[Rfam]
RNA sequence: ACUCCCCUGCUUGUGUUCCCUCUCUCGCUGUGUCUCUCUCUGUCAGAUAAAUAAAUAAAAAAUCUUUUUUUUUUAAGAUUUUAUUUAUUUAUCUGACAGAGAGAGACACAGCGAGAGAGGGAACACAAGCAGGGGCAGA
Numbered sequence: 001a002c003u004c005c006c007c008u009g010c011u012u013g014u015g016u017u018c019c020c021u022c023u024c025u026c027g028c029u030g031u032g033u034c035u036c037u038c039u040c041u042g043u044c045a046g047a048u049a050a051a052u053a054a055a056u057a058a059a060a061a062a063u064c065u066u067u068u069u070u071u072u073u074u075a076a077g078a079u080u081u082u083a084u085u086u087a088u089u090u091a092u093c094u095g096a097c098a099g100a101g102a103g104a105g106a107c108a109c110a111g112c113g114a115g116a117g118a119g120g121g122a123a124c125a126c127a128a129g130c131a132g133g134g135g136c137a138g139a
Stems, first nucleotide, its partner, number of pairs: 002138002004135013018121015034105003039100004044095012058082002062079003066075001